A member of the RNA family "nhaA-I RNA", 53 nucleotides long.

Nucleotides: 053
Base pairs, nucleotide, nucleotide: 005027006026007025008024009023010022012020034053035052036051037050038049039048040047
Number, partner (000 for none) and nucleotide at each position: 001000g002000g003000g004000u005027c006026c007025g008024g009023a010022a011000a012020c013000g014000c015000a016000u017000g018000g019000c020012g021000c022010u023009u024008c025007c026006g027005g028000a029000g030000g031000a032000a033000u034053g035052g036051a037050u038049g039048g040047u041000c042000g043000g044000g045000c046000c047040g048039c049038c050037a051036u052035c053034u

Acidobacteria, Alphaproteobacteria, Betaproteobacteria and Gammaproteobacteria, Verrucomicrobia, cand. division NC10. The sequence is in the family's curated seed alignment. The base pairs follow the family's consensus structure, which is taken from published work.